This 87-nucleotide RNA sequence from Triticum aestivum belongs to the Rfam family "MIR1120/MIR1122 microRNA precursor family".
[Rfam]
RNA sequence: GUACUCCCUCUGUAAAGAAAUAUUAGAGUGUUUAGAUCACUUAAGUAGUGAUCUAAACGCUCUUAUAUUUCUUUACGGAGGGAGUAC
Dot-bracket structure: ..(((.(((((.(((((.(((((.(((((((((((((((((.....))))))))))))))))).))))).))))).))))).)))..
Numbered sequence: 001g002u003a004c005u006c007c008c009u010c011u012g013u014a015a016a017g018a019a020a021u022a023u024u025a026g027a028g029u030g031u032u033u034a035g036a037u038c039a040c041u042u043a044a045g046u047a048g049u050g051a052u053c054u055a056a057a058c059g060c061u062c063u064u065a066u067a068u069u070u071c072u073u074u075a076c077g078g079a080g081g082g083a084g085u086a087c
Stems, first nucleotide, its partner, number of pairs: 003085003007081005013075005019069005025063017